[Rfam]
RNA sequence: CUCGCCGCUGGACGGAAGCGGUCCCGAGGGUUGGGGAGCCCGAUGACGGACCGCCGACGAGAGCCGGCUCGGGUCUAAGGGAGCCCGGGUCCUCGCUCCGGCGAAGAAG
Numbered sequence: 001c002u003c004g005c006c007g008c009u010g011g012a013c014g015g016a017a018g019c020g021g022u023c024c025c026g027a028g029g030g031u032u033g034g035g036g037a038g039c040c041c042g043a044u045g046a047c048g049g050a051c052c053g054c055c056g057a058c059g060a061g062a063g064c065c066g067g068c069u070c071g072g073g074u075c076u077a078a079g080g081g082a083g084c085c086c087g088g089g090u091c092c093u094c095g096c097u098c099c100g101g102c103g104a105a106g107a108a109g
Stems, first nucleotide, its partner, number of pairs: 006103007013059002018055001019053006028041005061094003066091001070087005
Rfam assigns this 109-nucleotide sequence to the family "Actinomyces-1 RNA". Rfam's curators put it in the seed alignment. The base pairs follow the family's consensus structure, which is taken from published work. The family's RNA type in Rfam is small RNA.